Shown here is an 82-nucleotide RNA sequence from Pantherophis guttatus, a member of the family "ctgf/hcs24 CAESAR". A reference for the family is Kubota et al. (1999), "Involvement of cis-acting repressive element(s) in the 3'-untranslated region of human connective tissue growth factor gene", FEBS Lett. The 3' UTR of human connective tissue growth factor/hypertrophic chondrocyte specific 24 (ctgf/hcs24) mRNA has been shown to repress ctgf gene expression. Reference identified a minimal RNA element, predicted to form a stable secondary structure, which acts as a post-transcriptional cis-acting element of structure-anchored repression (CAESAR), probably through direct interactions with as yet unknown nuclear factors. NCBI's taxonomy places the organism under Eukaryota, Sarcopterygii, Sauria, Toxicofera, Pantherophis. It scores 48 bits against the family's covariance model. Rfam links the family to the GO term negative regulation of gene expression.

RNA sequence: AUGGAGACAUGGCAUAAAGCCCCAAGAGAGAUUUUUUUUUGAACUGGACUCUCGACUUGAACUGAUAAUGACAUCUCAUUUU
Numbered sequence: 001a002u003g004g005a006g007a008c009a010u011g012g013c014a015u016a017a018a019g020c021c022c023c024a025a026g027a028g029a030g031a032u033u034u035u036u037u038u039u040u041g042a043a044c045u046g047g048a049c050u051c052u053c054g055a056c057u058u059g060a061a062c063u064g065a066u067a068a069u070g071a072c073a074u075c076u077c078a079u080u081u082u
Stems, first nucleotide, its partner, number of pairs: 004077004010025001011021003030072001031069003